RNA sequence: UCGUGGGACACCCCUCCCCAACGAGGGGCGCAUAUCUGAAAGGGUAGCAUUG
Numbered sequence: 001u002c003g004u005g006g007g008a009c010a011c012c013c014c015u016c017c018c019c020a021a022c023g024a025g026g027g028g029c030g031c032a033u034a035u036c037u038g039a040a041a042g043g044g045u046a047g048c049a050u051u052g
Stems, first nucleotide, its partner, number of pairs: 011028006033046005

This 52-nucleotide RNA sequence belongs to the Rfam family "serC leader". A reference for the family is Corbino et al. (2005), "Evidence for a second class of S-adenosylmethionine riboswitches and other regulatory RNA motifs in alpha-proteobacteria", Genome Biol. This family is a putative regulatory RNA structure that is found upstream of the serC-serA operon in some alpha-proteobacteria. The final stem of the structure overlaps the ribosome binding site of the serC reading frame. The pairing is the family consensus, mapped onto this sequence.